[Rfam]
RNA sequence: UAACCUCUGAUAAAUUCUAUGAAUGUUG
Numbered sequence: 001u002a003a004c005c006u007c008u009g010a011u012a013a014a015u016u017c018u019a020u021g022a023a024u025g026u027u028g
Stems, first nucleotide, its partner, number of pairs: 001028004008023001010020003
Shown here is a 28-nucleotide RNA from Sipha flava, a member of the family "L19-Flavobacteria ribosomal protein leader". It is annotated as a cis-regulatory leader. NCBI's taxonomy places the organism under Eukaryota, Arthropoda, Altocrustacea, Eumetabola, Sipha. It scores 34 bits against the family's covariance model. The base pairs follow the family's consensus structure, which is taken from published work. For this family Rfam cites "Discovery of 20 novel ribosomal leader candidates in bacteria and archaea" (Eckert and Weinberg, BMC Microbiol, 2020).